[Rfam]
RNA sequence: GACGGGCCGCCCCGCAUUGUGGCGCGGUGAACCUGGUCAGGCCGGGAACGGAGCAGCCACAGCCGUUUACUGCAAGUGCCGGGGGAACGGCUCGUCAAC
Numbered sequence: 001g002a003c004g005g006g007c008c009g010c011c012c013c014g015c016a017u018u019g020u021g022g023c024g025c026g027g028u029g030a031a032c033c034u035g036g037u038c039a040g041g042c043c044g045g046g047a048a049c050g051g052a053g054c055a056g057c058c059a060c061a062g063c064c065g066u067u068u069a070c071u072g073c074a075a076g077u078g079c080c081g082g083g084g085g086a087a088c089g090g091c092u093c094g095u096c097a098a099c
Stems, first nucleotide, its partner, number of pairs: 004093005010084005015076001017075006024066005034059004042051003
RNA: Bacterial small signal recognition particle RNA